[Rfam]
RNA sequence: AGAGGUCACAAGUUUGAGGCCACAGCAGAAGCACUCACAGCUCAGCCUGUUGGAUUCCAGGGAAUCUGCAAAUUUUACU
Dot-bracket structure: .................[[[...((.(((((...........).]]]...(((((((....)))))))....)))).))
RNA: Mammalian CPEB3 ribozyme
Organism: Alligator sinensis